[Rfam]
RNA sequence: CGACAACGAGGAUAGAGGAAGUCGCCUCACGGCGGCUGGGCGCGAAAUUCGCC
Numbered sequence: 001c002g003a004c005a006a007c008g009a010g011g012a013u014a015g016a017g018g019a020a021g022u023c024g025c026c027u028c029a030c031g032g033c034g035g036c037u038g039g040g041c042g043c044g045a046a047a048u049u050c051g052c053c
Stems, first nucleotide, its partner, number of pairs: 020037007
RNA: leuA-Halobacteria RNA